[Rfam]
RNA: Small nucleolar RNA Z221/R21b
Nucleotides: 092
Base pairs, nucleotide, nucleotide: 001092002091003090004089
Number, partner (000 for none) and nucleotide at each position: 001092g002091g003090g004089u005000u006000g007000u008000g009000a010000u011000g012000a013000u014000a015000a016000u017000u018000a019000u020000a021000g022000a023000g024000a025000a026000u027000g028000u029000c030000a031000u032000g033000c034000a035000c036000c037000a038000c039000u040000c041000u042000g043000a044000a045000u046000a047000u048000u049000a050000u051000u052000g053000u054000g055000a056000u057000g058000a059000u060000a061000u062000a063000u064000u065000c066000u067000c068000a069000u070000a071000u072000a073000c074000c075000c076000a077000u078000a079000a080000a081000a082000a083000u084000u085000c086000u087000g088000a089004g090003c091002c092001u